[Rfam]
Nucleotides: 110
Base pairs, nucleotide, nucleotide: 010019011018012017021035022034023033024032025031026030044066045065046064047063048062049061050060051059052058068080069079070078071077094110095109096108097107098106099105
Number, partner (000 for none) and nucleotide at each position: 001000g002000u003000a004000u005000g006000g007000g008000u009000c010019a011018c012017c013000g014000c015000a016000a017012g018011g019010u020000u021035u022034c023033u024032g025031g026030c027000a028000u029000u030026g031025c032024c033023a034022g035021a036000c037000a038000a039000u040000a041000u042000u043000c044066c045065g046064c047063g048062g049061c050060u051059u052058g053000c054000a055000c056000c057000g058052c059051a060050a061049g062048c063047c064046g065045c066044g067000a068080c069079c070078g071077g072000c073000c074000c075000c076000g077071c078070c079069g080068g081000a082000u083000g084000a085000a086000a087000c088000c089000a090000g091000a092000a093000c094110g095109c096108c097107g098106g099105u100000a101000c102000g103000a104000c105099a106098c107097c108096g109095g110094c